[Rfam]
RNA sequence: UUCUUAUCCAGAGAGGUGGAGGGACUGGCCCAUUGAUACCUCAGCAACAGACGAUAAUGUACUGUGCUAAUUCCAGAAGCGUCAUGCUUGAAGAUAAGAA
Numbered sequence: 001u002u003c004u005u006a007u008c009c010a011g012a013g014a015g016g017u018g019g020a021g022g023g024a025c026u027g028g029c030c031c032a033u034u035g036a037u038a039c040c041u042c043a044g045c046a047a048c049a050g051a052c053g054a055u056a057a058u059g060u061a062c063u064g065u066g067c068u069a070a071u072u073c074c075a076g077a078a079g080c081g082u083c084a085u086g087c088u089u090g091a092a093g094a095u096a097a098g099a100a
Stems, first nucleotide, its partner, number of pairs: 001100008013042005021031003025076004043068004048064002051060003072092001077089005
This 100-nucleotide RNA sequence from Cytobacillus solani belongs to the Rfam family "SAM riboswitch aptamer (S box leader)". The base pairs follow the family's consensus structure, which is taken from published work. The SAM riboswitch is found upstream of a number of genes which code for proteins involved in methionine or cysteine biosynthesis in Gram-positive bacteria. The source organism's lineage runs through Bacteria, Bacillota, Caryophanales, Bacillaceae and Cytobacillus. A search with the family's covariance model found it, with a score of 87 bits.